[Rfam]
RNA sequence: ACAUCACCAUCAUCAUCCUGACUAGUCUUUCAGGAGGAUACGCCUCGCUCUGGAAGACGCAAAACUCUCUUCCAGCGGUCAGCGAUACUACCCUAUUCAUGGACCCUCGGAAGAGCAUUCUUCCGAGGGUUUUUUCGU
Numbered sequence: 001a002c003a004u005c006a007c008c009a010u011c012a013u014c015a016u017c018c019u020g021a022c023u024a025g026u027c028u029u030u031c032a033g034g035a036g037g038a039u040a041c042g043c044c045u046c047g048c049u050c051u052g053g054a055a056g057a058c059g060c061a062a063a064a065c066u067c068u069c070u071u072c073c074a075g076c077g078g079u080c081a082g083c084g085a086u087a088c089u090a091c092c093c094u095a096u097u098c099a100u101g102g103a104c105c106c107u108c109g110g111a112a113g114a115g116c117a118u119u120c121u122u123c124c125g126a127g128g129g130u131u132u133u134u135u136c137g138u
Stems, first nucleotide, its partner, number of pairs: 010047001012039003017034005050075008099134001101132013
Shown here is a 138-nucleotide sequence from Photobacterium ganghwense, a member of the family "Histidine operon leader". Its family is annotated with histidine biosynthetic process in the Gene Ontology. At least 6 amino acid operons are known to be regulated by attenuation. In each a leader sequence of 150-200 bp is found upstream of the first gene in the operon. This leader sequence can assume two different secondary structures known as the terminator and the anti-terminator structure. In each case the leader also codes for very short peptide sequence that is rich in the end product amino acid of the operon. Pairs were carried over by alignment from the consensus structure, which is taken from published work.